[Rfam]
RNA: Small nucleolar RNA SNORA15
RNA sequence: GCAUGGAUGAAUUCUGCCCUAGCUCUCCUCAUAGCUGGUGCAGUCAGACACCAUGCCAGAGCAAAUUCCUUUUUCCCACUGUGCCUGGUGUGCUUUUUGAUGGGACGAGCAUGCCCUUGGGAGGGGGACACAU
Numbered sequence: 001g002c003a004u005g006g007a008u009g010a011a012u013u014c015u016g017c018c019c020u021a022g023c024u025c026u027c028c029u030c031a032u033a034g035c036u037g038g039u040g041c042a043g044u045c046a047g048a049c050a051c052c053a054u055g056c057c058a059g060a061g062c063a064a065a066u067u068c069c070u071u072u073u074u075c076c077c078a079c080u081g082u083g084c085c086u087g088g089u090g091u092g093c094u095u096u097u098u099g100a101u102g103g104g105a106c107g108a109g110c111a112u113g114c115c116c117u118u119g120g121g122a123g124g125g126g127g128a129c130a131c132a133u
Base pairs, nucleotide, nucleotide: 001056002055003054004053005052006051014043015042016041017040019038070127071126072124073123074122075121076120077119078118087115088114089113090112091111092110093109094108095107